tp2: a 115-nucleotide RNA from Sodalis ligni. A reference for the family is Rivas et al. (2001), "Computational identification of noncoding RNAs in E. coli by comparative genomics", Curr Biol. The match comes from Rfam's covariance-model search (85 bits). Rfam classes the family as a small RNA.
Nucleotides: 115
Base pairs, nucleotide, nucleotide: 001100002099003098004097022091023089024088025087038085040083041082042081043080044079045078046077049074051072052071053070055068056067058065059064
Number, partner (000 for none) and nucleotide at each position: 001100g002099g003098u004097g005000u006000u007000c008000c009000u010000u011000a012000u013000c014000u015000a016000u017000c018000g019000c020000u021000a022091a023089u024088a025087a026000u027000u028000g029000g030000u031000u032000u033000a034000g035000u036000u037000g038085g039000a040083g041082c042081c043080u044079g045078u046077c047000u048000u049074c050000c051072u052071g053070u054000a055068u056067u057000c058065a059064c060000u061000a062000a063000g064059g065058u066000a067056a068055a069000c070053a071052c072051a073000c074049g075000a076000a077046g078045a079044c080043a081042g082041g083040c084000c085038c086000a087025u088024u089023g090000c091022u092000u093000u094000c095000g096000u097004u098003g099002c100001c101000g102000c103000a104000u105000u106000c107000a108000g109000a110000u111000c112000c113000c114000g115000u